[Rfam]
Source information:
The family of this 67-nucleotide RNA sequence from Parazoarcus communis is "Betaproteobacteria toxic small RNA". From the family's description: Overexpression in amino aid rich medium attenuates growth, suggesting role in repressing amino acid intake and metabolism. Rfam 15.1 lists 951 matches to the family in 508 species.
RNA sequence: UGUCUCCUCCACUCUCCUCCAAGAUGUGGAUUUCAGCCCGGGCCCGAAAGCGUCCGGGCUUUUUUCU
Numbered sequence: 001u002g003u004c005u006c007c008u009c010c011a012c013u014c015u016c017c018u019c020c021a022a023g024a025u026g027u028g029g030a031u032u033u034c035a036g037c038c039c040g041g042g043c044c045c046g047a048a049a050g051c052g053u054c055c056g057g058g059c060u061u062u063u064u065u066c067u
Base pairs, nucleotide, nucleotide: 008030009029010028011027012026013024014023035060036059037058038057039056040055041054042053
The organism belongs to Parazoarcus, within Bacteria. On this family, see Kimelman et al., Genome Res 2012: "A vast collection of microbial genes that are toxic to bacteria". The match comes from Rfam's covariance-model search (63 bits). The family's consensus secondary structure was predicted with WAR.